[Rfam]
RNA sequence: AUAACCAUGUGGCAGGGGAUAUACCAUGAUCACGAAGGUGGUUUUCCCAGGGUGAGGCUCAUCCACUGCACUGCAGGUGUCCUGACCCCUGUGAUUUCCCCAAAUGCGGGAAACUCAACUGCAUAAUUUGUAGUAUAAC
Numbered sequence: 001a002u003a004a005c006c007a008u009g010u011g012g013c014a015g016g017g018g019a020u021a022u023a024c025c026a027u028g029a030u031c032a033c034g035a036a037g038g039u040g041g042u043u044u045u046c047c048c049a050g051g052g053u054g055a056g057g058c059u060c061a062u063c064c065a066c067u068g069c070a071c072u073g074c075a076g077g078u079g080u081c082c083u084g085a086c087c088c089c090u091g092u093g094a095u096u097u098c099c100c101c102a103a104a105u106g107c108g109g110g111a112a113a114c115u116c117a118a119c120u121g122c123a124u125a126a127u128u129u130g131u132a133g134u135a136u137a138a139c
Base pairs, nucleotide, nucleotide: 012122013121014120015119016048017047018046019045021043023042024041025040026039027038049090050089051088052087054086056083057082060079061078062077063076092117093116094115095113096112097111099109100108
Rfam assigns this 139-nucleotide sequence from Mauremys mutica to the family "U1 spliceosomal RNA". The family has 100 seed sequences and 40,184 matches in Rfam 15.1. Pairs were carried over by alignment from the consensus structure, which is taken from published work. The match comes from Rfam's covariance-model search (99 bits).